[Rfam]
RNA sequence: GGCCUGAUGCCACGUCACCUGCAGCUACGGCUUUGACCGGUGAUGCUUUGAUUAGGCCAAAACAGAGUUGGUUUCCUACGUUUCACAUGUUGAUAGGAACCUGGGACUGCAUCUCCAUCGGUCUACAGAGCCCGUUUCUGUCAUUACAUUU
Numbered sequence: 001g002g003c004c005u006g007a008u009g010c011c012a013c014g015u016c017a018c019c020u021g022c023a024g025c026u027a028c029g030g031c032u033u034u035g036a037c038c039g040g041u042g043a044u045g046c047u048u049u050g051a052u053u054a055g056g057c058c059a060a061a062a063c064a065g066a067g068u069u070g071g072u073u074u075c076c077u078a079c080g081u082u083u084c085a086c087a088u089g090u091u092g093a094u095a096g097g098a099a100c101c102u103g104g105g106a107c108u109g110c111a112u113c114u115c116c117a118u119c120g121g122u123c124u125a126c127a128g129a130g131c132c133c134g135u136u137u138c139u140g141u142c143a144u145u146a147c148a149u150u151u
Stems, first nucleotide, its partner, number of pairs: 002057007009049001013045006021037001024031002083143001085141003096132002101128003104124005
This 151-nucleotide RNA sequence from Oryza sativa belongs to the Rfam family "Small nucleolar RNA snoR2/U65". For this family Rfam cites "Localization and processing from a polycistronic precursor of novel snoRNAs in maize" (Shaw et al., J Cell Sci, 1998). Taxonomically the source falls in Oryza sativa (Eukaryota, Embryophyta, Poales, Oryzeae).